[Rfam]
RNA sequence: AUGAGUCCAACAGGAGCGUCCUAAAGAGUACAUGAACUCAAAAUGAGAUUGGUUUACUAGCUGUAUUACUUAUGUUCAUGUGUUCUCAGGUCGCCCCUGCUGGACUAUC
Numbered sequence: 001a002u003g004a005g006u007c008c009a010a011c012a013g014g015a016g017c018g019u020c021c022u023a024a025a026g027a028g029u030a031c032a033u034g035a036a037c038u039c040a041a042a043a044u045g046a047g048a049u050u051g052g053u054u055u056a057c058u059a060g061c062u063g064u065a066u067u068a069c070u071u072a073u074g075u076u077c078a079u080g081u082g083u084u085c086u087c088a089g090g091u092c093g094c095c096c097c098u099g100c101u102g103g104a105c106u107a108u109c
Stems, first nucleotide, its partner, number of pairs: 007103002011099004016094003025086009